[Rfam]
RNA sequence: GCUGGUAACCAGCACGGGCGUAGGAGUUUCUCCACGCCCGUGCACGCAUGUUAAGGGCAGGAAAGAUAAC
Numbered sequence: 001g002c003u004g005g006u007a008a009c010c011a012g013c014a015c016g017g018g019c020g021u022a023g024g025a026g027u028u029u030c031u032c033c034a035c036g037c038c039c040g041u042g043c044a045c046g047c048a049u050g051u052u053a054a055g056g057g058c059a060g061g062a063a064a065g066a067u068a069a070c
Stems, first nucleotide, its partner, number of pairs: 001009001012043009023033003
A member of the RNA family "tpke11" from Pantoea alhagi, 70 nucleotides long. The source organism's lineage runs through Bacteria, Gammaproteobacteria, Enterobacterales, Erwiniaceae and Pantoea. A search with the family's covariance model found it, with a score of 68 bits. From the family's description: In Yersinia located in ICR upstream dnaJ (chaperone)gene. Has temperature responsive RNA structure. By type it is a small RNA.